[Rfam]
RNA: mir-2856 microRNA precursor family
RNA sequence: UUGUGCUAUCUUGUCUGUGGUUCGAGGGUGAGAUUGGCUCAGCACUAUAGGCGGAACAUUCGAGAACCGUAAGACUAUUCGUAUAAA
Numbered sequence: 001u002u003g004u005g006c007u008a009u010c011u012u013g014u015c016u017g018u019g020g021u022u023c024g025a026g027g028g029u030g031a032g033a034u035u036g037g038c039u040c041a042g043c044a045c046u047a048u049a050g051g052c053g054g055a056a057c058a059u060u061c062g063a064g065a066a067c068c069g070u071a072a073g074a075c076u077a078u079u080c081g082u083a084u085a086a087a
Base pairs, nucleotide, nucleotide: 002085003084004083005082008079011077013075014074015073016072018069019068020067021066022065023064026061027060028059029058030057034054035053038050